[Rfam]
RNA: c-di-GMP-I-GGC riboswitch aptamer
RNA sequence: ACCGAGAAGGGCAAACCGUUCGAAAGGGCGGGGCGCAAAGUCAUGGGCCUAAGGCGGGAUCUAAGCUAAGGCUGCCAGGCUGCCGGUG
Numbered sequence: 001a002c003c004g005a006g007a008a009g010g011g012c013a014a015a016c017c018g019u020u021c022g023a024a025a026g027g028g029c030g031g032g033g034c035g036c037a038a039a040g041u042c043a044u045g046g047g048c049c050u051a052a053g054g055c056g057g058g059a060u061c062u063a064a065g066c067u068a069a070g071g072c073u074g075c076c077a078g079g080c081u082g083c084c085g086g087u088g
Base pairs, nucleotide, nucleotide: 003085004084011036012035016031017030018029019028020027021026034074039081040080041079042078044077045076046075047072048071049070